[Rfam]
RNA sequence: UGAAGUGUUCCAACACUAAGACGUGUGGCUGCCGUGGGUUGGUGGGAACCCGGCUUGCCCAGGGUCAGUGUUAUCAGUGCUCAGU
Number, nucleotide and partner (000 for none) at each position: 001u083002g082003a081004a000005g000006u079007g078008u077009u076010c000011c000012a072013a071014c070015a069016c068017u067018a000019a000020g000021a000022c063023g000024u061025g060026u000027g059028g058029c057030u000031g054032c053033c052034g000035u000036g000037g050038g049039u048040u047041g000042g000043u000044g000045g000046g000047a040048a039049c038050c037051c000052g033053g032054c031055u000056u000057g029058c028059c027060c025061a024062g000063g022064g000065u000066c000067a017068g016069u015070g014071u013072u012073a000074u000075c000076a009077g008078u007079g006080c000081u003082c002083a001084g000085u000
RNA: mir-9215 microRNA precursor family
Organism: Pipistrellus kuhlii